[Rfam]
RNA: MIR5272 microRNA precursor family
Organism: Medicago truncatula
RNA sequence: UUGAAUGUAAUUGAUUUAUGUUUGGAUACAAUAACCUAAAAUUGAUUCUUAUCAAUUUAUGUUGUUUGGGUAG
Numbered sequence: 001u002u003g004a005a006u007g008u009a010a011u012u013g014a015u016u017u018a019u020g021u022u023u024g025g026a027u028a029c030a031a032u033a034a035c036c037u038a039a040a041a042u043u044g045a046u047u048c049u050u051a052u053c054a055a056u057u058u059a060u061g062u063u064g065u066u067u068g069g070g071u072a073g
Stems, first nucleotide, its partner, number of pairs: 010060002013057004020052002024048004029044004